The record is a 64-nucleotide RNA from Caenorhabditis elegans, which matches "Selenocysteine insertion sequence 1" in Rfam. The base pairs follow the family's consensus structure, which is taken from published work. It is one of the family's seed sequences. NCBI's taxonomy places the organism under Eukaryota, Bilateria, Ecdysozoa, Rhabditidae, Caenorhabditis. It is annotated as a cis-regulatory element. Its family is annotated with selenocysteine incorporation in the Gene Ontology.
[Rfam]
Nucleotides: 064
Base pairs, nucleotide, nucleotide: 001064002063003062004061005060017053018052019051020050024046025045026044032041033040
Number, partner (000 for none) and nucleotide at each position: 001064g002063a003062g004061g005060c006000a007000g008000c009000u010000u011000u012000g013000u014000g015000a016000c017053g018052a019051c020050c021000u022000u023000u024046g025045g026044c027000u028000a029000a030000a031000c032041u033040c034000c035000a036000u037000c038000g039000u040033g041032a042000g043000c044026g045025c046024c047000u048000c049000u050020g051019g052018u053017c054000u055000g056000a057000u058000g059000c060005g061004c062003c063002u064001c